[Rfam]
RNA sequence: GACGCUAGAGAGCGCUGCGGAAUAAGCGUUGUGGACCCGGGGGCAGUACCCGGCGCCUCCACCAAUUCGCCGGGAUCGGAACCGACCAUCUUCCAGAUCCCGGCCUCAUGGGGGCGAACCAGGAUCGACACGCGUAGUAAAGGCAGAUGUUCGCGUUCGGCAUGGUACCGCCGAUAUCGGGCCAAAUCGCUAAAUGCGAACGAUAACGACGAGAUGGUUGCUGUCGCUGCGUAA
Numbered sequence: 001g002a003c004g005c006u007a008g009a010g011a012g013c014g015c016u017g018c019g020g021a022a023u024a025a026g027c028g029u030u031g032u033g034g035a036c037c038c039g040g041g042g043g044c045a046g047u048a049c050c051c052g053g054c055g056c057c058u059c060c061a062c063c064a065a066u067u068c069g070c071c072g073g074g075a076u077c078g079g080a081a082c083c084g085a086c087c088a089u090c091u092u093c094c095a096g097a098u099c100c101c102g103g104c105c106u107c108a109u110g111g112g113g114g115c116g117a118a119c120c121a122g123g124a125u126c127g128a129c130a131c132g133c134g135u136a137g138u139a140a141a142g143g144c145a146g147a148u149g150u151u152c153g154c155g156u157u158c159g160g161c162a163u164g165g166u167a168c169c170g171c172c173g174a175u176a177u178c179g180g181g182c183c184a185a186a187u188c189g190c191u192a193a194a195u196g197c198g199a200a201c202g203a204u205a206a207c208g209a210c211g212a213g214a215u216g217g218u219u220g221c222u223g224u225c226g227c228u229g230c231g232u233a234a
Stems, first nucleotide, its partner, number of pairs: 001157005015146004027134003031131003037053005054116007158173004
The record is a 234-nucleotide RNA sequence from Pacificispira spongiicola, which matches "permuted transfer-messenger RNA" in Rfam. Pairs were carried over by alignment from the consensus structure, which is taken from published work. The family's RNA type in Rfam is non-coding RNA gene. From the family's description: Bacterial tmRNA, also known as 10Sa RNA or SsrA, is named for its dual tRNA and mRNA-like properties. The source organism's lineage runs through Bacteria, Pseudomonadati, Pseudomonadota, Rhodospirillales and Pacificispira.